The record is a 141-nucleotide sequence from bacterium HR25, which matches "c-di-AMP riboswitch aptamer (ydaO/yuaA leader)" in Rfam. The match comes from Rfam's covariance-model search (78 bits).
RNA sequence: GAUGUGGCCCCGCCUAAUCCGCCGGUGGGCGGACCGGGGGACAGGAACAUUUCGGGGUGAAUCUCGCCCUGAGGGCGAGUAGGGCUAAGCCUUUCGGCCCGAACCCGUCAACUAACCUCGGCGGCGUCGGAAAGGCCUGGG
Number, nucleotide and partner (000 for none) at each position: 001g000002a000003u000004g000005u000006g000007g000008c000009c000010c000011c126012g125013c124014c123015u000016a000017a000018u033019c032020c031021g030022c029023c028024g000025g000026u000027g000028g023029g022030c021031g020032g019033a018034c121035c120036g119037g118038g117039g116040g000041a000042c000043a000044g000045g053046a000047a000048c000049a000050u000051u000052u000053c045054g000055g106056g105057g104058u000059g000060a000061a000062u000063c079064u078065c077066g076067c000068c000069c000070u000071g000072a000073g000074g000075g000076c066077g065078a064079g063080u000081a000082g100083g099084g098085c097086u000087a000088a000089g000090c000091c000092u000093u000094u000095c000096g000097g085098c084099c083100c082101g000102a000103a000104c057105c056106c055107g000108u000109c000110a000111a000112c000113u000114a000115a000116c039117c038118u037119c036120g035121g034122c000123g014124g013125c012126g011127u000128c000129g000130g000131a000132a000133a000134g000135g000136c000137c000138u000139g000140g000141g000